[Rfam]
RNA: Small nucleolar RNA snoR125
Organism: Brassica oleracea
RNA sequence: GGGCGAUGAUUAUAAAGAGAGAGGAUUGAGUGGGGAGUAUGAACAAAACUCUCAUGGGACUGGAGAAAACUAAACCCUGAUCGAAAUCGAUGGAGAAAAUAUAUUUUGUUUUUUCCCUUUUUCGAAUUUUAGGUUUUUUUUCUCUUCAUUCCUUACCCUCGAUGACGGUCCUUCCAAAUGUACACUUGAUAUGAGCCCU
Number, nucleotide and partner (000 for none) at each position: 001g198002g197003g196004c195005g000006a000007u000008g000009a190010u189011u188012a187013u000014a000015a000016a000017g000018a000019g000020a000021g160022a159023g158024g157025a000026u000027u054028g053029a052030g051031u000032g049033g000034g000035g000036a000037g000038u045039a000040u000041g000042a000043a000044c000045a038046a000047a000048a000049c032050u000051c030052u029053c028054a027055u000056g153057g152058g151059a000060c000061u000062g150063g149064a145065g144066a143067a000068a141069a140070c000071u000072a000073a136074a135075c000076c133077c132078u000079g129080a128081u125082c124083g123084a122085a121086a120087u000088c000089g000090a000091u000092g116093g115094a114095g113096a112097a111098a110099a000100u000101a106102u000103a000104u000105u000106u101107u000108g000109u000110u098111u097112u096113u095114u094115c093116c092117c000118u000119u000120u086121u085122u084123c083124g082125a081126a000127u000128u080129u079130u000131a000132g077133g076134u000135u074136u073137u000138u000139u000140u069141u068142c000143u066144c065145u064146u000147c000148a000149u063150u062151c058152c057153u056154u000155a000156c000157c024158c023159u022160c021161g000162a000163u182164g181165a179166c000167g175168g174169u000170c000171c000172u000173u000174c168175c167176a000177a000178a000179u165180g000181u164182a163183c000184a000185c000186u000187u012188g011189a010190u009191a000192u000193g000194a000195g004196c003197c002198c001199u000